The family of this 102-nucleotide RNA is "Termite-flg RNA".
[Rfam]
RNA sequence: AAUCGUUUCGUUCUGUUUGCGGCUUAUUGGAGCGGCGGCGCGAAACCGUCUCCUCUACUCCGCGUCCGCGGAACGGCUCCGGCAAGGAUAGCUGGGGCAAGC
Numbered sequence: 001a002a003u004c005g006u007u008u009c010g011u012u013c014u015g016u017u018u019g020c021g022g023c024u025u026a027u028u029g030g031a032g033c034g035g036c037g038g039c040g041c042g043a044a045a046c047c048g049u050c051u052c053c054u055c056u057a058c059u060c061c062g063c064g065u066c067c068g069c070g071g072a073a074c075g076g077c078u079c080c081g082g083c084a085a086g087g088a089u090a091g092c093u094g095g096g097g098c099a100a101g102c
Stems, first nucleotide, its partner, number of pairs: 009075008019063004029053004033048003076098008